The family of this 28-nucleotide RNA sequence from Myotis myotis is "L19-Flavobacteria ribosomal protein leader". Rfam classes the family as a cis-regulatory leader. The match comes from Rfam's covariance-model search (32 bits). The family's consensus secondary structure is taken from published work. NCBI's taxonomy places the organism under Eukaryota, Metazoa, Euteleostomi, Vespertilionidae, Myotis.

[Rfam]
RNA sequence: CAACCUCUGGUGUCUACCAUGAAUGUUG
Numbered sequence: 001c002a003a004c005c006u007c008u009g010g011u012g013u014c015u016a017c018c019a020u021g022a023a024u025g026u027u028g
Base pairs, nucleotide, nucleotide: 001028002027003026004025008023010020011019012018